Rfam assigns this 293-nucleotide RNA sequence from Citricoccus muralis to the family "5' ureB small RNA". The base pairs follow the family's consensus structure, which was predicted with mfold. Rfam links the family to the GO term negative regulation of gene expression.
RNA sequence: CGGUGGGGAUCUGGUCCGGGGAGAUGAAAUGGAUAUGGGUGUCGAUCCCCCCGGCGGUGACGAUCUUGCGCUCGCCUGCGAUGAUCUCCGUGGCCGGGCCGAUGGUGAUGUCCACGCCAUCCUGGAUGUCCGGGUUGCCGGCUUUGCCGAUGGCCUGGAUGUGGCCGUCCCGCAGUGCGAUGUCCGCCUUGUAGACGCCGGUGUGGUCCACGAUCACGGCGUUGGUGAUCACGGUGUCCGGCACGCCCUCGUCCCGGGUCGCCCGGCCGUUAAGGCCCAUGCCCUCCCGGAUG
Numbered sequence: 001c002g003g004u005g006g007g008g009a010u011c012u013g014g015u016c017c018g019g020g021g022a023g024a025u026g027a028a029a030u031g032g033a034u035a036u037g038g039g040u041g042u043c044g045a046u047c048c049c050c051c052c053g054g055c056g057g058u059g060a061c062g063a064u065c066u067u068g069c070g071c072u073c074g075c076c077u078g079c080g081a082u083g084a085u086c087u088c089c090g091u092g093g094c095c096g097g098g099c100c101g102a103u104g105g106u107g108a109u110g111u112c113c114a115c116g117c118c119a120u121c122c123u124g125g126a127u128g129u130c131c132g133g134g135u136u137g138c139c140g141g142c143u144u145u146g147c148c149g150a151u152g153g154c155c156u157g158g159a160u161g162u163g164g165c166c167g168u169c170c171c172g173c174a175g176u177g178c179g180a181u182g183u184c185c186g187c188c189u190u191g192u193a194g195a196c197g198c199c200g201g202u203g204u205g206g207u208c209c210a211c212g213a214u215c216a217c218g219g220c221g222u223u224g225g226u227g228a229u230c231a232c233g234g235u236g237u238c239c240g241g242c243a244c245g246c247c248c249u250c251g252u253c254c255c256g257g258g259u260c261g262c263c264c265g266g267c268c269g270u271u272a273a274g275g276c277c278c279a280u281g282c283c284c285u286c287c288c289g290g291a292u293g
Base pairs, nucleotide, nucleotide: 001293002292006288007287008286009285012158014156017153018076019075021073022072023071030053031052032051037048038047039046040045057069058068059067078147081144083142085140090138091137092136093135094134095133097130098129099125100124102123104121105120106119107117164276165275166274174271175270176269177267178266185221186220187219188218190216191215200209201208224263225262228259230257234255236253